RNA: Small nucleolar RNA SNORA70
Organism: Microcebus murinus
RNA sequence: CUGAAGCCAAUUAAGCUGACCGUGCUCCUUUCCUCAUGGGGGCCCAGUGUGCAAUGGCUGCAAACAGCAGGCUCCUUGAUAGUGUAUGCAGCCUGUUGCCUGUAUGGGUUGCUUUAAGGGACCUCGGGACACAGUC
Dot-bracket structure: .((.(.............((.(..((((..........))))..).)).).))........................(.(........((((((...........)))))).........).).............
Numbered sequence: 001c002u003g004a005a006g007c008c009a010a011u012u013a014a015g016c017u018g019a020c021c022g023u024g025c026u027c028c029u030u031u032c033c034u035c036a037u038g039g040g041g042g043c044c045c046a047g048u049g050u051g052c053a054a055u056g057g058c059u060g061c062a063a064a065c066a067g068c069a070g071g072c073u074c075c076u077u078g079a080u081a082g083u084g085u086a087u088g089c090a091g092c093c094u095g096u097u098g099c100c101u102g103u104a105u106g107g108g109u110u111g112c113u114u115u116a117a118g119g120g121a122c123c124u125c126g127g128g129a130c131a132c133a134g135u136c
Stems, first nucleotide, its partner, number of pairs: 002053002005050001019048002022045001025042004078123001080121001089111006